[Rfam]
RNA: Alphaproteobacterial sRNA ar9
RNA sequence: ACAAAAGAGGCAGGGAGAUUAAAUUCUUGCCGAUUUCGCGGUCAAGUCUUGGGAGGAUCAGAUCUUAGGCGCGCCCGUUCGCAGCCCCUUAAAUGGUGAAAGAUCACGCGAUACUUGAACAAGGCCUCACGGCCUUGUUUUUUUUU
Number, nucleotide and partner (000 for none) at each position: 001a000002c000003a146004a145005a144006a143007g000008a000009g000010g000011c029012a028013g027014g026015g025016a024017g000018a000019u000020u000021a000022a000023a000024u016025u015026c014027u013028u012029g011030c000031c000032g000033a000034u000035u000036u000037c110038g109039c108040g107041g000042u000043c000044a000045a000046g058047u057048c056049u055050u000051g000052g000053g000054a000055g049056g048057a047058u046059c000060a000061g105062a104063u103064c102065u101066u000067a000068g086069g085070c084071g082072c081073g080074c000075c000076c000077g000078u000079u000080c073081g072082c071083a000084g070085c069086c068087c096088c095089u000090u000091a000092a000093a000094u000095g088096g087097u000098g000099a000100a000101a065102g064103a063104u062105c061106a000107c040108g039109c038110g037111a000112u000113a000114c000115u000116u000117g000118a139119a138120c137121a136122a135123g134124g133125c132126c000127u000128c000129a000130c000131g000132g125133c124134c123135u122136u121137g120138u119139u118140u000141u000142u000143u006144u005145u004146u003